[Rfam]
RNA sequence: UGGCUGUGACGACCAAGAACUUUGUUUCUCGGUCCUGACUUGAUUUAAUCAAGGACCAACCUUUUGAUUACCUUUGUGCAAUUUUGCGUAUCUGAGCCAC
Numbered sequence: 001u002g003g004c005u006g007u008g009a010c011g012a013c014c015a016a017g018a019a020c021u022u023u024g025u026u027u028c029u030c031g032g033u034c035c036u037g038a039c040u041u042g043a044u045u046u047a048a049u050c051a052a053g054g055a056c057c058a059a060c061c062u063u064u065u066g067a068u069u070a071c072c073u074u075u076g077u078g079c080a081a082u083u084u085u086g087c088g089u090a091u092c093u094g095a096g097c098c099a100c
Stems, first nucleotide, its partner, number of pairs: 001099004
Dot-bracket structure: ((((...........................................................................................)))).
The record is a 100-nucleotide RNA from Zizania palustris, which matches "small nucleolar RNA snoR126" in Rfam.
Rfam 15.1 lists 423 matches to the family in 200 species.
On this family, see Chen and Wu, Nucleic Acids Res 2009: "Mining small RNA sequencing data: a new approach to identify small nucleolar RNAs in Arabidopsis".
Rfam links the family to the GO terms nucleolus and RNA processing.
A search with the family's covariance model found it, with a score of 52 bits.
The family's RNA type in Rfam is C/D-box small nucleolar RNA.